[Rfam]
RNA sequence: GCCCCCGAACCAAACUGUGGCGUUUAUCGCCGCGUUCCCUUCUUGGGAUAGGUUCGGGGGUUUCC
Numbered sequence: 001g002c003c004c005c006c007g008a009a010c011c012a013a014a015c016u017g018u019g020g021c022g023u024u025u026a027u028c029g030c031c032g033c034g035u036u037c038c039c040u041u042c043u044u045g046g047g048a049u050a051g052g053u054u055c056g057g058g059g060g061u062u063u064c065c
Stems, first nucleotide, its partner, number of pairs: 001061011016034007036048004
Dot-bracket structure: (((((((((((....(((((((.....))))))).((((.....))))..)))))))))))....